[Rfam]
RNA sequence: CUUGAGGGGAAUGUUGGCUGGCUCGAGGCUUUUUUCACAAGAAGAUAGAGAGACAAAGGUUGUAUAUAUAAACUUUCUCAUCAUUGAUCUUCUCUUCUCCUUUCCUCUUCUCUUCACUCAGCAAGAGAGAGAGAGAGAGUCCACUGAGUAAGAGAGAUGGAGAAAGUUAAACACAUAUAUACAACUGAAGUACUCUAAGAGGCUUCGGACCAGGCUUCAUUCCCCUCAAA
Numbered sequence: 001c002u003u004g005a006g007g008g009g010a011a012u013g014u015u016g017g018c019u020g021g022c023u024c025g026a027g028g029c030u031u032u033u034u035u036c037a038c039a040a041g042a043a044g045a046u047a048g049a050g051a052g053a054c055a056a057a058g059g060u061u062g063u064a065u066a067u068a069u070a071a072a073c074u075u076u077c078u079c080a081u082c083a084u085u086g087a088u089c090u091u092c093u094c095u096u097c098u099c100c101u102u103u104c105c106u107c108u109u110c111u112c113u114u115c116a117c118u119c120a121g122c123a124a125g126a127g128a129g130a131g132a133g134a135g136a137g138a139g140u141c142c143a144c145u146g147a148g149u150a151a152g153a154g155a156g157a158u159g160g161a162g163a164a165a166g167u168u169a170a171a172c173a174c175a176u177a178u179a180u181a182c183a184a185c186u187g188a189a190g191u192a193c194u195c196u197a198a199g200a201g202g203c204u205u206c207g208g209a210c211c212a213g214g215c216u217u218c219a220u221u222c223c224c225c226u227c228a229a230a
Base pairs, nucleotide, nucleotide: 002229003228004227005226006225007224008223009222010221011220012219013218016215018213019212020211021210024207025206026205027204028203029202030201031200032199033198034197